[Rfam]
RNA sequence: UUUGAGGGGAAUGAUGUCUGGCUCAAGGUUGGCUACUCUUUCUUCAGUUAUAUACAUAUUUGUGGAAGAGAUCUCGGACCAGGCUUCAUUCCCCCCAAU
Numbered sequence: 001u002u003u004g005a006g007g008g009g010a011a012u013g014a015u016g017u018c019u020g021g022c023u024c025a026a027g028g029u030u031g032g033c034u035a036c037u038c039u040u041u042c043u044u045c046a047g048u049u050a051u052a053u054a055c056a057u058a059u060u061u062g063u064g065g066a067a068g069a070g071a072u073c074u075c076g077g078a079c080c081a082g083g084c085u086u087c088a089u090u091c092c093c094c095c096c097a098a099u
Stems, first nucleotide, its partner, number of pairs: 002098003006094008016084006024076001026074001